This 71-nucleotide sequence from Hymenochirus boettgeri belongs to the Rfam family "mir-24 microRNA precursor family". The family's consensus secondary structure was predicted with RNAalifold.
RNA sequence: GCCUCCCGUACCUGCUGUGCUGAUUAUCAGUGGUGAUUCUAUUCCCCUGGCUCAGUUCAGCAGGACAGGAG
Numbered sequence: 001g002c003c004u005c006c007c008g009u010a011c012c013u014g015c016u017g018u019g020c021u022g023a024u025u026a027u028c029a030g031u032g033g034u035g036a037u038u039c040u041a042u043u044c045c046c047c048u049g050g051c052u053c054a055g056u057u058c059a060g061c062a063g064g065a066c067a068g069g070a071g
Base pairs, nucleotide, nucleotide: 003071004070005069006068008066009065011064012063013062015060016059017058019056020055021054022053023052027050028049029048030047
NCBI's taxonomy places the organism under Eukaryota, Opisthokonta, Tetrapoda, Pipoidea, Hymenochirus. Gene Ontology terms of the family: RISC complex and miRNA-mediated post-transcriptional gene silencing.